The record is a 129-nucleotide sequence from Populus trichocarpa, which matches "MIR480 microRNA precursor family" in Rfam.
Nucleotides: 129
Base pairs, nucleotide, nucleotide: 004129005128006127007126008124009123012121015118019114027106028105029104030103031102
Number, partner (000 for none) and nucleotide at each position: 001000u002000a003000a004129u005128u006127u007126u008124u009123a010000u011000a012121g013000g014000a015118u016000a017000g018000a019114u020000u021000a022000u023000c024000a025000u026000c027106u028105a029104a030103u031102u032000g033000u034000a035000g036000c037000a038000a039000a040000c041000u042000c043000a044000c045000a046000a047000c048000u049000a050000u051000c052000u053000c054000a055000u056000a057000a058000u059000c060000a061000c062000u063000u064000g065000u066000u067000a068000u069000c070000g071000g072000a073000u074000g075000g076000u077000a078000c079000a080000u081000c082000a083000c084000u085000a086000u087000a088000c089000u090000u091000g092000g093000a094000a095000a096000c097000u098000c099000u100000u101000u102031a103030a104029u105028u106027g107000g108000u109000u110000a111000a112000a113000c114019a115000a116000a117000a118015g119000a120000g121012u122000u123009u124008a125000a126007a127006a128005a129004a

Background:
NCBI's taxonomy places the organism under Eukaryota, Streptophyta, Tracheophyta, fabids, Populus. The family has 69 seed sequences and 3,070 matches in Rfam 15.1. The family's consensus secondary structure was predicted with WAR. Rfam links the family to the GO terms RISC complex and miRNA-mediated post-transcriptional gene silencing. A search with the family's covariance model found it, with a score of 45 bits.